tRNA: a 94-nucleotide sequence from Penicillium vulpinum. Pairs were carried over by alignment from the consensus structure, which is taken from published work. By type it is a transfer RNA.

[Rfam]
RNA sequence: GCUUUGGUAGUUCAGUGGUAGAAUACUACUCUUCCAUAUCACUUUUCUGAAGUGUUGUUAAGUAGUGGCCGGGGUUCGAUUCCCCGUCAAUGCA
Numbered sequence: 001g002c003u004u005u006g007g008u009a010g011u012u013c014a015g016u017g018g019u020a021g022a023a024u025a026c027u028a029c030u031c032u033u034c035c036a037u038a039u040c041a042c043u044u045u046u047c048u049g050a051a052g053u054g055u056u057g058u059u060a061a062g063u064a065g066u067g068g069c070c071g072g073g074g075u076u077c078g079a080u081u082c083c084c085c086g087u088c089a090a091u092g093c094a
Base pairs, nucleotide, nucleotide: 001093002092004090005089006088007087010024011023012022013021026065027064028063029062030061070086071085072084073083074082